[Rfam]
RNA sequence: UGGCAAUAUCGCAACUGGCGUUUGGAUGGGUUUCCAUCAGGGAGCGAUUUGAGAGCGGAUUCGGCCGAACGCCUGGGCCGAAACG
Numbered sequence: 001u002g003g004c005a006a007u008a009u010c011g012c013a014a015c016u017g018g019c020g021u022u023u024g025g026a027u028g029g030g031u032u033u034c035c036a037u038c039a040g041g042g043a044g045c046g047a048u049u050u051g052a053g054a055g056c057g058g059a060u061u062c063g064g065c066c067g068a069a070c071g072c073c074u075g076g077g078c079c080g081a082a083a084c085g
Stems, first nucleotide, its partner, number of pairs: 004051001006050001008048005015041002017073005026037004062080005
RNA: ZMP/ZTP riboswitch aptamer (pfl RNA motif)
Organism: Alpinimonas psychrophila